Nucleotides: 079
Stems, first nucleotide, its partner, number of pairs: 031044005050074005
Number, partner (000 for none) and nucleotide at each position: 001000u002000a003000g004000u005000a006000g007000c008000a009000c010000u011000u012000a013000u014000a015000g016000g017000a018000a019000c020000u021000g022000u023000c024000u025000g026000g027000a028000g029000u030000g031044u032043c033042c034041a035040c036000g037000a038000a039000a040035g041034u042033g043032g044031g045000a046000a047000u048000a049000a050074u051073g052072c053071a054070c055000a056000u057000u058000a059000a060000u061000u062000a063000a064000a065000c066000c067000c068000u069000a070054g071053u072052g073051c074050a075000a076000g077000g078000u079000a
Background: A member of the RNA family "RAGATH-12 RNA", 79 nucleotides long. A reference for the family is Weinberg et al. (2015), "New classes of self-cleaving ribozymes revealed by comparative genomics analysis", Nat Chem Biol. The sequence is in the family's curated seed alignment.